[Rfam]
RNA sequence: CUCGGGCUACAACACGGGACCCGGGCGCUGCUCCGACCCCUCGUGUCUUGUGUUGCAGCCGGAGGGAC
Numbered sequence: 001c002u003c004g005g006g007c008u009a010c011a012a013c014a015c016g017g018g019a020c021c022c023g024g025g026c027g028c029u030g031c032u033c034c035g036a037c038c039c040c041u042c043g044u045g046u047c048u049u050g051u052g053u054u055g056c057a058g059c060c061g062g063a064g065g066g067a068c
Stems, first nucleotide, its partner, number of pairs: 001064002005060004010055011022043004
RNA: mir-187 microRNA precursor family